This 401-nucleotide RNA from Synechococcus phage BUCT-ZZ01 belongs to the Rfam family "Betaproteobacteria transfer-messenger RNA". About the family: Bacterial tmRNA, also known as 10Sa RNA or SsrA, is named for its dual tRNA and mRNA-like properties. Its role is to liberate the mRNA from a stalled ribosome. To accomplish this part of the tmRNA is used as a reading frame that ends in a translation stop signal. The broken mRNA is replaced in the ribosome by the tmRNA and translation of the tmRNA leads to addition of a proteolysis tag to the incomplete protein enabling recognition by a protease. Its Rfam clan is "tRNA clan". The family's RNA type in Rfam is non-coding RNA gene.

RNA sequence: UUCCACCCAGGAUUUGCAAUCGGUGGCAAGCAUGCUUUAAUAUGGUUGUAUGAUACAACUCAAAAGGCGGGUAAGACGUGGGUUCGACUCCCACCCAGUCCACCAGAAAAAAUCUCACCUUAUGUAUAAAUUGCUGCAGCAGUUUAUCAUAUUGAAGAUAGUGUGCCCAUAAAAGAGCACUUAAAGCGAAGAAGGGCUAUCGAGGUUUUCCCUAAUGGGCUGGUCAUGGUUUCGAUUGCGCGAUGAGUAGGGAAGUGGACAACUCGUCAGGAGUAGACGUUAAAAGCAAAUUAAAAUAAAUGCAAAUGAUGAAACAUUCAGCAUGGCACUAGCAGCCUAAAAACUGCUAAGGUCUGAGUUUUACUGGGUUUGAACUUGGAAACAGAAUCAAACCCUAAACA
Numbered sequence: 001u002u003c004c005a006c007c008c009a010g011g012a013u014u015u016g017c018a019a020u021c022g023g024u025g026g027c028a029a030g031c032a033u034g035c036u037u038u039a040a041u042a043u044g045g046u047u048g049u050a051u052g053a054u055a056c057a058a059c060u061c062a063a064a065a066g067g068c069g070g071g072u073a074a075g076a077c078g079u080g081g082g083u084u085c086g087a088c089u090c091c092c093a094c095c096c097a098g099u100c101c102a103c104c105a106g107a108a109a110a111a112a113u114c115u116c117a118c119c120u121u122a123u124g125u126a127u128a129a130a131u132u133g134c135u136g137c138a139g140c141a142g143u144u145u146a147u148c149a150u151a152u153u154g155a156a157g158a159u160a161g162u163g164u165g166c167c168c169a170u171a172a173a174a175g176a177g178c179a180c181u182u183a184a185a186g187c188g189a190a191g192a193a194g195g196g197c198u199a200u201c202g203a204g205g206u207u208u209u210c211c212c213u214a215a216u217g218g219g220c221u222g223g224u225c226a227u228g229g230u231u232u233c234g235a236u237u238g239c240g241c242g243a244u245g246a247g248u249a250g251g252g253a254a255g256u257g258g259a260c261a262a263c264u265c266g267u268c269a270g271g272a273g274u275a276g277a278c279g280u281u282a283a284a285a286g287c288a289a290a291u292u293a294a295a296a297u298a299a300a301u302g303c304a305a306a307u308g309a310u311g312a313a314a315c316a317u318u319c320a321g322c323a324u325g326g327c328a329c330u331a332g333c334a335g336c337c338u339a340a341a342a343a344c345u346g347c348u349a350a351g352g353u354c355u356g357a358g359u360u361u362u363a364c365u366g367g368g369u370u371u372g373a374a375c376u377u378g379g380a381a382a383c384a385g386a387a388u389c390a391a392a393c394c395c396u397a398a399a400c401a
Base pairs, nucleotide, nucleotide: 044264045263046262047261048260056258059251060250062248068242069241071239072238073237074236078094079093080092081091082090095223096222097221098220099219100218101217265279266278267277268276363376365374367394368393369392370391371390372389